[Rfam]
RNA sequence: AUAAGGCAAUCGCCGAAUUCCGUUUUAUGGAAGCGGGGGACCCAUUUUUGGGGUGAAUCCUGUCAAAGCAGGUAGGGCAAAUUUCUUUCUGCCCGAAUCCGUCAGCUAACCUCGUAGGCGUUGGAAGAGAAGGA
Number, nucleotide and partner (000 for none) at each position: 001a000002u000003a000004a000005g000006g000007c000008a000009a000010u000011c120012g119013c118014c117015g000016a000017a000018u032019u031020c030021c000022g000023u000024u000025u000026u000027a000028u000029g000030g020031a019032a018033g115034c114035g113036g112037g111038g110039g000040a000041c000042c000043c050044a049045u000046u000047u000048u000049u044050g043051g100052g099053g098054u000055g000056a000057a000058u000059c072060c071061u070062g069063u000064c000065a000066a000067a000068g000069c062070a061071g060072g059073u000074a000075g094076g093077g092078c091079a000080a000081a000082u000083u000084u000085c000086u000087u000088u000089c000090u000091g078092c077093c076094c075095g000096a000097a000098u053099c052100c051101g000102u000103c000104a000105g000106c000107u000108a000109a000110c038111c037112u036113c035114g034115u033116a000117g014118g013119c012120g011121u000122u000123g000124g000125a000126a000127g000128a000129g000130a000131a000132g000133g000134a000
The family of this 134-nucleotide sequence from Sporomusa malonica is "c-di-AMP riboswitch aptamer (ydaO/yuaA leader)". The pairing is the family consensus, mapped onto this sequence. The organism belongs to Sporomusa, within Bacteria.